[Rfam]
RNA sequence: UUACUGGCUGGGUGUUAUUCCGCUGUGACCCAUUGUCGUGUGUCGAAGGAGAGCGACGGCAGAUACACGAACAGUAA
Numbered sequence: 001u002u003a004c005u006g007g008c009u010g011g012g013u014g015u016u017a018u019u020c021c022g023c024u025g026u027g028a029c030c031c032a033u034u035g036u037c038g039u040g041u042g043u044c045g046a047a048g049g050a051g052a053g054c055g056a057c058g059g060c061a062g063a064u065a066c067a068c069g070a071a072c073a074g075u076a077a
Base pairs, nucleotide, nucleotide: 001077002076003075004074005073006072009032010031011030012029037069038068039067040066041065042064043063044062
Shown here is a 77-nucleotide RNA sequence from Amazonocrinis nigriterrae, a member of the family "CyVA-1 RNA". Rfam classes the family as a small RNA. The source organism's lineage runs through Bacteria, Bacillati, Cyanobacteriota, Amazonocrinis and Amazonocrinis nigriterrae. The match comes from Rfam's covariance-model search (81 bits).